A member of the RNA family "U4 spliceosomal RNA" from Alectura lathami, 142 nucleotides long. The family's consensus secondary structure is taken from published work. Clan: U4 clan. Rfam describes the family as follows. U4 small nuclear RNA (U4 snRNA) is a component of the major U2-dependent spliceosome. Its family is annotated with U4 snRNP and spliceosomal tri-snRNP complex assembly in the Gene Ontology. The organism belongs to Alectura, within Eukaryota. The match comes from Rfam's covariance-model search (69 bits). The family's RNA type in Rfam is spliceosomal small nuclear RNA.

[Rfam]
RNA sequence: CGCUUUGCACAGUGUCAGUAUCAUAGGCAAUAAGGUUAAUCUGAGGCACGAUUAUUGCUAAUUUAAAACUUUUCCCAAUACCCCGUCAUGACAACUUGAAAUGUAGUUGGCAUUGGCACAAAUUUUUCAUGACAACAAGCUG
Numbered sequence: 001c002g003c004u005u006u007g008c009a010c011a012g013u014g015u016c017a018g019u020a021u022c023a024u025a026g027g028c029a030a031u032a033a034g035g036u037u038a039a040u041c042u043g044a045g046g047c048a049c050g051a052u053u054a055u056u057g058c059u060a061a062u063u064u065a066a067a068a069c070u071u072u073u074c075c076c077a078a079u080a081c082c083c084c085g086u087c088a089u090g091a092c093a094a095c096u097u098g099a100a101a102u103g104u105a106g107u108u109g110g111c112a113u114u115g116g117c118a119c120a121a122a123u124u125u126u127u128c129a130u131g132a133c134a135a136c137a138a139g140c141u142g
Base pairs, nucleotide, nucleotide: 020052021051022050024048026047028045034042035041085117086116087115088113089112090111092109093108094107095106096105133142134141